About this RNA:
The record is a 115-nucleotide RNA from Kitasatospora setae, which matches "Streptomyces-metH RNA" in Rfam.
Nucleotides: 115
Stems, first nucleotide, its partner, number of pairs: 054078004060073004081095002084093003
Number, partner (000 for none) and nucleotide at each position: 001000a002000c003000g004000a005000u006000g007000c008000g009000a010000a011000a012000c013000g014000g015000g016000u017000u018000c019000c020000c021000u022000c023000c024000g025000a026000c027000c028000c029000c030000c031000g032000g033000g034000g035000g036000a037000c038000c039000g040000a041000u042000a043000c044000c045000c046000u047000g048000g049000c050000g051000g052000g053000g054078u055077g056076c057075g058000c059000c060073c061072c062071c063070g064000u065000a066000c067000g068000g069000g070063u071062g072061g073060g074000c075057c076056g077055c078054a079000u080000a081095g082094c083000c084093g085092a086091c087000a088000g089000c090000c091086g092085u093084c094082g095081c096000a097000a098000c099000c100000a101000g102000g103000g104000a105000g106000u107000c108000g109000c110000c111000c112000c113000a114000u115000g